[Rfam]
RNA sequence: UAUUUUGAAACUGUUUUCAAAUCGAGAAUUUCGAGGCCUGAAUGCAAGAACCGUUUUGAGCAUACUGGCCUCCAAAUUUUCGCUUUGAAUUUUAGUUAC
Numbered sequence: 001u002a003u004u005u006u007g008a009a010a011c012u013g014u015u016u017u018c019a020a021a022u023c024g025a026g027a028a029u030u031u032c033g034a035g036g037c038c039u040g041a042a043u044g045c046a047a048g049a050a051c052c053g054u055u056u057u058g059a060g061c062a063u064a065c066u067g068g069c070c071u072c073c074a075a076a077u078u079u080u081c082g083c084u085u086u087g088a089a090u091u092u093u094a095g096u097u098a099c
Base pairs, nucleotide, nucleotide: 009097010096011095012094016089017088018087019086020085021084023082024081025080026079027078028077029076030075031074033072034071035070036069037068038067042063043062044061045060
Background
Rfam assigns this 99-nucleotide sequence from Caenorhabditis briggsae to the family "mir-240 microRNA precursor family". Rfam links the family to the GO terms RISC complex and miRNA-mediated post-transcriptional gene silencing. The literature on the family includes a 2003 paper in Genes Dev by Lim et al., "The microRNAs of Caenorhabditis elegans".